[Rfam]
RNA sequence: ACACCGGACCGCGACUGGCGCUGAGGUGGAUCACCACCGGGGAACGGUCUGCCAUCCGGCUUCGCCGCGCGCCUGGGCACCUGGG
Numbered sequence: 001a002c003a004c005c006g007g008a009c010c011g012c013g014a015c016u017g018g019c020g021c022u023g024a025g026g027u028g029g030a031u032c033a034c035c036a037c038c039g040g041g042g043a044a045c046g047g048u049c050u051g052c053c054a055u056c057c058g059g060c061u062u063c064g065c066c067g068c069g070c071g072c073c074u075g076g077g078c079a080c081c082u083g084g085g
Stems, first nucleotide, its partner, number of pairs: 005051007015041002017073005026037004064078003
The record is an 85-nucleotide sequence from Kribbella solani, which matches "ZMP/ZTP riboswitch aptamer (pfl RNA motif)" in Rfam.
The organism belongs to Kribbella, within Bacteria.